[Rfam]
RNA: Small nucleolar RNA snoR2/U65
Organism: Senna tora
RNA sequence: GGUCCAAUGCCACGUCGCCGGUAGCCUUCUGAGCACUGACCGGCGAUGCUAUGAUUGGACCCAAAGCAAGAUUCAUUCGUUUCGCAUGCUGAUAGGAACCUGUGGAUCCCAAUUUCUCUGGAUCCAUGGAGCCGAUUUCUGCGACUACAUCU
Number, nucleotide and partner (000 for none) at each position: 001g000002g060003u059004c058005c057006a056007a055008u054009g052010c000011c000012a000013c048014g047015u046016c045017g044018c043019c000020g041021g040022u039023a000024g034025c033026c000027u000028u000029c000030u000031g000032a000033g025034c024035a000036c000037u000038g000039a022040c021041c020042g000043g018044c017045g016046a015047u014048g013049c000050u000051a000052u009053g000054a008055u007056u006057g005058g004059a003060c002061c000062c000063a000064a000065a000066g000067c000068a000069a000070g000071a000072u000073u000074c000075a000076u000077u000078c000079g000080u000081u000082u144083c143084g142085c141086a140087u000088g000089c000090u000091g000092a000093u000094a000095g133096g132097a000098a000099c000100c129101u128102g127103u000104g125105g124106a123107u122108c121109c000110c000111a000112a000113u000114u000115u000116c000117u000118c000119u000120g000121g108122a107123u106124c105125c104126a000127u102128g101129g100130a000131g000132c096133c095134g000135a000136u000137u000138u000139c000140u086141g085142c084143g083144a082145c000146u000147a000148c000149a000150u000151c000152u000